[Rfam]
RNA: permuted transfer-messenger RNA
Organism: Pararhodobacter aggregans
RNA sequence: GGACAUAAACGCGCUCGUAAUAAUCGGAUCGGACCCGGGGGCGGUACCCGGCGGCUCCACCAAAACGUCCUUCAUUGGGGGCGAAUGGGGCCGAAACAGGAUCGACGAACGUCUAAAGGGGUUUGCUUUGUCCCGGUGAGCUACCACCGAUAUCGGUGCAAAACGUACAGUUGCCAAUGACAACCGUGCUCCGGUGGCCGUCGCUGCGUAA
Dot-bracket structure: (((((.......((((........((..(((...(((((.......)))))(((((((............................)))))))............))).)).......))))......)))))((((........))))..............................................................